[Rfam]
RNA: Small nucleolar RNA SNORA70
Organism: Macaca mulatta
Nucleotides: 135
Stems, first nucleotide, its partner, number of pairs: 002053004019048004025042004078123003089111006
Number, partner (000 for none) and nucleotide at each position: 001000c002053u003052g004051c005050a006000g007000c008000c009000a010000a011000u012000u013000a014000a015000g016000c017000u018000g019048a020047c021046u022045g023000a024000g025042u026041u027040c028039c029000u030000u031000u032000c033000c034000u035000c036000a037000u038000g039028g040027g041026g042025g043000c044000c045022c046021a047020g048019u049000g050005u051004g052003c053002a054000g055000u056000c057000g058000c059000u060000g061000c062000a063000a064000a065000c066000a067000g068000c069000a070000g071000c072000u073000u074000c075000c076000u077000u078123g079122g080121u081000a082000g083000c084000g085000u086000a087000u088000g089111c090110a091109g092108c093107c094106u095000g096000u097000u098000u099000a100000u101000u102000g103000u104000a105000u106094g107093g108092g109091u110090u111089g112000c113000u114000c115000u116000a117000a118000g119000g120000g121080a122079c123078c124000u125000u126000g127000g128000a129000g130000a131000c132000a133000g134000g135000u